[Rfam]
About this RNA:
A member of the RNA family "Bacterial large subunit ribosomal RNA" from Oenococcus oeni, 373 nucleotides of a longer RNA. The family has 102 seed sequences and 51,934 matches in Rfam 15.1. It scores 2839 bits against the family's covariance model. NCBI's taxonomy places the organism under Bacteria, Bacillota, Bacilli, Lactobacillales, Oenococcus oeni.
RNA sequence: GAAAGAUAGGUGAGAAUCCUAUCCACCGAAUGAGUAAGGUUUCCCCCGGAAGGCUCGUCCGCGGGGGGUUAGUCGGGACCUAAGGCGAGGCUGAAAAGCGUAGUCGAUGGACAACAGGUUGAUAUUCCUGUACCGAUAUUUAAUUGCCGAAGGAAGGACGCAGAAGGAUAACACAGGCCACUAUUGGAUGUGGUUUUAAACAGUUAGUCUUCAUAAGAGUCAAAUGCUUUUAUGUUUAAGGAUAAGCUGUGAAUGUACCAAGUUUACUUGGAAAUUGUGUGAUUUCACGCUGCUGAAAAAAGUUUCGUAGGAAGAAAAUAUUGCCCGUACCGCAAACCGACACAGGUACUCAAGUGGAGAACACUAAGGUGAG
Dot-bracket structure: ....((((((.......))))))((((....((((..((...((((((...((.....)).))))))......((((.((...(((.(.(((....))).).)))...))...(((((........)))))..((((((((.....((...((((....((((..(((..(((((((((((........))))))(...((((...(((..((((((.((.....)))).))))......)))...))))....)(.(((((....))))).)..)))))...)))...)))).........))))...))....))))))))))))..)).....((......)).)))).((((.....))))..))))..